[Rfam]
RNA sequence: ACUACGUUGCGGCUCUUCAUCGGGCACUUUGCUUUUUUAAAUGCCAGCUGCCUUUUGAAGGGCAACACUGUGGU
Numbered sequence: 001a002c003u004a005c006g007u008u009g010c011g012g013c014u015c016u017u018c019a020u021c022g023g024g025c026a027c028u029u030u031g032c033u034u035u036u037u038u039a040a041a042u043g044c045c046a047g048c049u050g051c052c053u054u055u056u057g058a059a060g061g062g063c064a065a066c067a068c069u070g071u072g073g074u
Stems, first nucleotide, its partner, number of pairs: 004071003008067002012063004017058003023052002028047002031044002